A member of the RNA family "c-di-AMP riboswitch aptamer (ydaO/yuaA leader)" from Bacillus sp. 7884-1, 136 nucleotides long. Taxonomically the source falls in Bacillus (Bacteria, Bacillati, Bacilli, Caryophanales).
RNA sequence: AUUUCUAAAUCGCUGAAACCUUUUAGGCACGGGGGAACCAUAUGGAAUUAAUCAAGGGGUGAAUCCUUUUUAAGGUAGGGCUACUCAGUAGGUCCGAAUCCGACAGCUAACCUCGUAAGCGUUUAUGAGAAGGAAG
Numbered sequence: 001a002u003u004u005c006u007a008a009a010u011c012g013c014u015g016a017a018a019c020c021u022u023u024u025a026g027g028c029a030c031g032g033g034g035g036a037a038c039c040a041u042a043u044g045g046a047a048u049u050a051a052u053c054a055a056g057g058g059g060u061g062a063a064u065c066c067u068u069u070u071u072a073a074g075g076u077a078g079g080g081c082u083a084c085u086c087a088g089u090a091g092g093u094c095c096g097a098a099u100c101c102g103a104c105a106g107c108u109a110a111c112c113u114c115g116u117a118a119g120c121g122u123u124u125a126u127g128a129g130a131a132g133g134a135a136g
Base pairs, nucleotide, nucleotide: 011121012120013119014118019027020026029116030115031114032113033112034111039056057101058100059099065075066074067073068072078095079094080093081092